[Rfam]
RNA sequence: ACAACGGCUCUUUUAAGAGCCACCUACUUGUAAAAAGAGCUUUCUA
Numbered sequence: 001a002c003a004a005c006g007g008c009u010c011u012u013u014u015a016a017g018a019g020c021c022a023c024c025u026a027c028u029u030g031u032a033a034a035a036a037g038a039g040c041u042u043u044c045u046a
Stems, first nucleotide, its partner, number of pairs: 006021006
Dot-bracket structure: .....((((((....)))))).........................
Shown here is a 46-nucleotide RNA from Neogobius melanostomus, a member of the family "Histone 3' UTR stem-loop". Lineage of the source: Eukaryota > Craniata > Teleostei > Gobiiformes > Neogobius. The match comes from Rfam's covariance-model search (37 bits).